[Rfam]
RNA sequence: CGGGCAGUAUCCUUUUUCAGGAAUUGCACCUGCAAGUAAUGAAAACCAGAUUUUAAUAGUUCUGCCUUGAUCCGGAAUUCGGACUGGGACAGAGGG
Numbered sequence: 001c002g003g004g005c006a007g008u009a010u011c012c013u014u015u016u017u018c019a020g021g022a023a024u025u026g027c028a029c030c031u032g033c034a035a036g037u038a039a040u041g042a043a044a045a046c047c048a049g050a051u052u053u054u055a056a057u058a059g060u061u062c063u064g065c066c067u068u069g070a071u072c073c074g075g076a077a078u079u080c081g082g083a084c085u086g087g088g089a090c091a092g093a094g095g096g
Stems, first nucleotide, its partner, number of pairs: 002030002004027005010022002062092003065088003069084001071083003
RNA: pan motif